[Rfam]
RNA sequence: AACAUCAUAUAAUUAUCGCAAAUGUAUCACUAAUUUUAAUGAACUUUUUUCUUUAAUUGUUCAGGGGAAGAUUCAUCUCUUCAAUAUCUUCCUCGUUUAUUUCGGUAUACUUUAGCGUAGAGAGAACGAACGUUGCUGGGCGCCUUAUGUUGAUUAUUUCAGUGAGACAUUGGGAAUCAGCAGUAUCAACAUUU
Numbered sequence: 001a002a003c004a005u006c007a008u009a010u011a012a013u014u015a016u017c018g019c020a021a022a023u024g025u026a027u028c029a030c031u032a033a034u035u036u037u038a039a040u041g042a043a044c045u046u047u048u049u050u051c052u053u054u055a056a057u058u059g060u061u062c063a064g065g066g067g068a069a070g071a072u073u074c075a076u077c078u079c080u081u082c083a084a085u086a087u088c089u090u091c092c093u094c095g096u097u098u099a100u101u102u103c104g105g106u107a108u109a110c111u112u113u114a115g116c117g118u119a120g121a122g123a124g125a126a127c128g129a130a131c132g133u134u135g136c137u138g139g140g141c142g143c144c145u146u147a148u149g150u151u152g153a154u155u156a157u158u159u160c161a162g163u164g165a166g167a168c169a170u171u172g173g174g175a176a177u178c179a180g181c182a183g184u185a186u187c188a189a190c191a192u193u194u
Stems, first nucleotide, its partner, number of pairs: 017117003024110004030104001032102001040063004047056002064094005070088003128187002130184002143174002147170005154165004
Dot-bracket structure: ................(((....((((..(.(.......((((...((......))...))))(((((.(((.............))).))))).......).)..))))....)))..........((((...........((..(((((..((((....)))))))))..))........)).)).......
The record is a 194-nucleotide RNA sequence from Maudiozyma saulgeensis, which matches "Small nucleolar RNA snR32" in Rfam. The literature on the family includes a 1993 paper in Nucleic Acids Res by Balakin et al., "SnR31, snR32, and snR33: three novel, non-essential snRNAs from Saccharomyces cerevisiae". It is annotated as an H/ACA-box small nucleolar RNA. Rfam links the family to the GO terms RNA processing and nucleolus.